[Rfam]
RNA sequence: AGAUGAGAUAGAGGUUGCAAUGGAUAAAAGUAGUUUGAAUGAGGGACAGAGGAACCGAUGACUUCAAAUGAAAGGAUUCAUUGCCGAAGUUUGCAGCGUACUCUGGCGCCGCAAGCUGGGCCUGCAUUCGAAUAGAGUCAGGACUGCCAUCGCUUAAUGGAAGCGAUGGAGCGCUAUCUACAUU
Dot-bracket structure: .....((((((.....(((((((((.......(((((((.......................)))))))......)))))))))...(((((((.((((......)))).)))))))((.((((.((((.....)))))))).)).(((((((.........)))))))....)))))).....

Background:
The record is a 184-nucleotide RNA from Anoxybacillus sp. B7M1, which matches "Lysine riboswitch aptamer" in Rfam. NCBI's taxonomy places the organism under Bacteria, Bacillota, Caryophanales, Anoxybacillaceae, Anoxybacillus. For this family Rfam cites "Riboswitches Control Fundamental Biochemical Pathways in Bacillus subtilis and Other Bacteria" (Mandal et al., Cell, 2003). Gene Ontology term of the family: lysine biosynthetic process.